[Rfam]
RNA sequence: CAGCUUUGAGAUAAAAACACGAUUCGGUUGGUAGUCCGAAUGCGGAUAAAUCCGUCAGUAACCUGCCCUCCUGGGGUUGUCCCUUCUCUAUUUAAGCUAA
Numbered sequence: 001c002a003g004c005u006u007u008g009a010g011a012u013a014a015a016a017a018c019a020c021g022a023u024u025c026g027g028u029u030g031g032u033a034g035u036c037c038g039a040a041u042g043c044g045g046a047u048a049a050a051u052c053c054g055u056c057a058g059u060a061a062c063c064u065g066c067c068c069u070c071c072u073g074g075g076g077u078u079g080u081c082c083c084u085u086c087u088c089u090a091u092u093u094a095a096g097c098u099a100a
Stems, first nucleotide, its partner, number of pairs: 006090001008088004022041006042055005065077004
Dot-bracket structure: .....(.((((..........((((((........))))))(((((....))))).........((((.....)))).......)))).)..........